[Rfam]
RNA sequence: CACAGAACGUGAAGGAAGCAACCAUGUGGACAAAGGCAAAAUGCCUUUUGUCUAUGAAUUGCAGUGAUCCUACAUAAACAUGGAGGUCUCUGUUUGGCUUAGGACAGCUGGCUAAGUCUGAUGAUUCCCCUCCAUACAGA
Numbered sequence: 001c002a003c004a005g006a007a008c009g010u011g012a013a014g015g016a017a018g019c020a021a022c023c024a025u026g027u028g029g030a031c032a033a034a035g036g037c038a039a040a041a042u043g044c045c046u047u048u049u050g051u052c053u054a055u056g057a058a059u060u061g062c063a064g065u066g067a068u069c070c071u072a073c074a075u076a077a078a079c080a081u082g083g084a085g086g087u088c089u090c091u092g093u094u095u096g097g098c099u100u101a102g103g104a105c106a107g108c109u110g111g112c113u114a115a116g117u118c119u120g121a122u123g124a125u126u127c128c129c130c131u132c133c134a135u136a137c138a139g140a
Base pairs, nucleotide, nucleotide: 005069006068010063011062025056026055027054028053029052030051031050036047082133083132084131085130086129092122093121094120096118097117098116099115100114101113102112

Annotation: Rfam assigns this 140-nucleotide RNA from Rhinolophus ferrumequinum to the family "Small Cajal body specific RNA 3". Rfam 15.1 lists 642 matches to the family in 535 species. By type it is a small Cajal body RNA. From the family's description: scaRNAs are a specific class of small nuclear RNAs which localise to the Cajal bodies and guide the modification of RNA polymerase II transcribed spliceosomal RNAs U1, U2, U4, U5 and U12.